[Rfam]
RNA: S4-Bacteroidia ribosomal protein leader
RNA sequence: GACCCUCCCAUAACUACCUCUCGAGGGUCGCGGCUG
Numbered sequence: 001g002a003c004c005c006u007c008c009c010a011u012a013a014c015u016a017c018c019u020c021u022c023g024a025g026g027g028u029c030g031c032g033g034c035u036g
Stems, first nucleotide, its partner, number of pairs: 001029007
Dot-bracket structure: (((((((...............))))))).......